[Rfam]
This 94-nucleotide RNA sequence from Filobacillus milosensis belongs to the Rfam family "c-di-GMP-I-GGC riboswitch aptamer". The match comes from Rfam's covariance-model search (66 bits). The base pairs follow the family's consensus structure, which is taken from published work. The literature on the family includes a 2017 paper in Proc Natl Acad Sci U S A by Weinberg et al., "Bioinformatic analysis of riboswitch structures uncovers variant classes with altered ligand specificity". The source organism's lineage runs through Bacteria, Bacillati, Bacillota, Caryophanales and Filobacillus.
RNA sequence: AUUGAAAAAGGCAAACUUUCCGAAAGGUUAGGGCGCAAAGCUGAGGGUCUAAGGUUUGGAAACUCCCAUGAUUAAGACAGCCUGGCUACCAAAU
Numbered sequence: 001a002u003u004g005a006a007a008a009a010g011g012c013a014a015a016c017u018u019u020c021c022g023a024a025a026g027g028u029u030a031g032g033g034c035g036c037a038a039a040g041c042u043g044a045g046g047g048u049c050u051a052a053g054g055u056u057u058g059g060a061a062a063c064u065c066c067c068a069u070g071a072u073u074a075a076g077a078c079a080g081c082c083u084g085g086c087u088a089c090c091a092a093a094u
Stems, first nucleotide, its partner, number of pairs: 001094001003091002011036002016031002020027002034080001039087004044083003047078003